[Rfam]
Histone 3' UTR stem-loop: a 47-nucleotide RNA sequence from Danio rerio. The literature on the family includes a 1999 paper in Gene by Dominski and Marzluff, "Formation of the 3' end of histone mRNA".

RNA sequence: CCAAAGGCUCUUUUAAGAGCCACACAAAUGUAUCAUAAAAGUCCAAU
Numbered sequence: 001c002c003a004a005a006g007g008c009u010c011u012u013u014u015a016a017g018a019g020c021c022a023c024a025c026a027a028a029u030g031u032a033u034c035a036u037a038a039a040a041g042u043c044c045a046a047u
Stems, first nucleotide, its partner, number of pairs: 006021006